[Rfam]
RNA sequence: AUGCCUUAAACUUAUGAGUAAGAAAACUAAUGAUCUGGGGUGACAUCCGAAUCCUCACUGCUAAUGUGAGAUGGAUUUUUGAGCAAGUAAAGGUUGCCCCUAAGGUGACCCGCCUAUUUUGCUAGAUGCCUGGGAGUCGCGAUCUGCCUG
Numbered sequence: 001a002u003g004c005c006u007u008a009a010a011c012u013u014a015u016g017a018g019u020a021a022g023a024a025a026a027c028u029a030a031u032g033a034u035c036u037g038g039g040g041u042g043a044c045a046u047c048c049g050a051a052u053c054c055u056c057a058c059u060g061c062u063a064a065u066g067u068g069a070g071a072u073g074g075a076u077u078u079u080u081g082a083g084c085a086a087g088u089a090a091a092g093g094u095u096g097c098c099c100c101u102a103a104g105g106u107g108a109c110c111c112g113c114c115u116a117u118u119u120u121g122c123u124a125g126a127u128g129c130c131u132g133g134g135a136g137u138c139g140c141g142a143u144c145u146g147c148c149u150g
Stems, first nucleotide, its partner, number of pairs: 005022004032053003036049004054070005084150002087147002091145007100134002103131005109125001112122002
Dot-bracket structure: ....((((..........)))).........(((.((((......)))).)))(((((.......))))).............((.((..(((((((..((.(((((.(..((.......))..).))))).))....))))))))).))
Rfam assigns this 150-nucleotide sequence from Carlito syrichta to the family "U12 minor spliceosomal RNA". The family is grouped with related families in Rfam's "U2 clan". The source organism's lineage runs through Eukaryota, Deuterostomia, Euteleostomi, Euarchontoglires and Carlito. The family has 62 seed sequences and 2,106 matches in Rfam 15.1.